[Rfam]
RNA sequence: CCACCCCAGUCAUUGCCAUGCGGAUAAAAGCAGGCCUGAAAAGGGUUUCCUGCUAGUCUCGACUCGAUUGGGUGCUCCAAUCGACCGAGGCAACACCCUCAAAUUGCCUGGAACUCCUGCUAGGCCCCUGGUACCGCCCAAUCGAUGAAAGUUGGUUGUGGCACCACGGUGAAAGUCGUGGGUAUGGUAAUAACCCAGUGGGAUAGGGAUAAUGGGCAGCCAAGUGCUAAGUGCAAUCGAAUCGGUGGUAUCGGUUGCAUAGGCAUGCAGUUCACAGACUAAAUGUGGGCGGGUCGAACUGGAAAUCUCAUCGAUUGCAUUUCCUUUUUGGCUUAAGAUAUAGUCGGGCCCCGCCGAGAGGCGUGC
Numbered sequence: 001c002c003a004c005c006c007c008a009g010u011c012a013u014u015g016c017c018a019u020g021c022g023g024a025u026a027a028a029a030g031c032a033g034g035c036c037u038g039a040a041a042a043g044g045g046u047u048u049c050c051u052g053c054u055a056g057u058c059u060c061g062a063c064u065c066g067a068u069u070g071g072g073u074g075c076u077c078c079a080a081u082c083g084a085c086c087g088a089g090g091c092a093a094c095a096c097c098c099u100c101a102a103a104u105u106g107c108c109u110g111g112a113a114c115u116c117c118u119g120c121u122a123g124g125c126c127c128c129u130g131g132u133a134c135c136g137c138c139c140a141a142u143c144g145a146u147g148a149a150a151g152u153u154g155g156u157u158g159u160g161g162c163a164c165c166a167c168g169g170u171g172a173a174a175g176u177c178g179u180g181g182g183u184a185u186g187g188u189a190a191u192a193a194c195c196c197a198g199u200g201g202g203a204u205a206g207g208g209a210u211a212a213u214g215g216g217c218a219g220c221c222a223a224g225u226g227c228u229a230a231g232u233g234c235a236a237u238c239g240a241a242u243c244g245g246u247g248g249u250a251u252c253g254g255u256u257g258c259a260u261a262g263g264c265a266u267g268c269a270g271u272u273c274a275c276a277g278a279c280u281a282a283a284u285g286u287g288g289g290c291g292g293g294u295c296g297a298a299c300u301g302g303a304a305a306u307c308u309c310a311u312c313g314a315u316u317g318c319a320u321u322u323c324c325u326u327u328u329u330g331g332c333u334u335a336a337g338a339u340a341u342a343g344u345c346g347g348g349c350c351c352c353g354c355c356g357a358g359a360g361g362c363g364u365g366c
Stems, first nucleotide, its partner, number of pairs: 007038003011034001013032001094291001096289003100285002105218006115209004219271002224266004232259009275346001277345005293332006301324001352363004

Background
A member of the RNA family "Group I catalytic intron" from Chlorella variabilis, 366 nucleotides long. A search with the family's covariance model found it, with a score of 87 bits. Its family is annotated with Group I intron splicing in the Gene Ontology. Lineage of the source: Eukaryota > Viridiplantae > Trebouxiophyceae > Chlorellales > Chlorella.